[Rfam]
RNA sequence: AUUCCAAUUGGCGCUGGGAUCCCGGAUAAUACGCCCCCGGUCUGCAACCGGGAAAUCAGGAGAGUACAUGUAC
Numbered sequence: 001a002u003u004c005c006a007a008u009u010g011g012c013g014c015u016g017g018g019a020u021c022c023c024g025g026a027u028a029a030u031a032c033g034c035c036c037c038c039g040g041u042c043u044g045c046a047a048c049c050g051g052g053a054a055a056u057c058a059g060g061a062g063a064g065u066a067c068a069u070g071u072a073c
Stems, first nucleotide, its partner, number of pairs: 036052006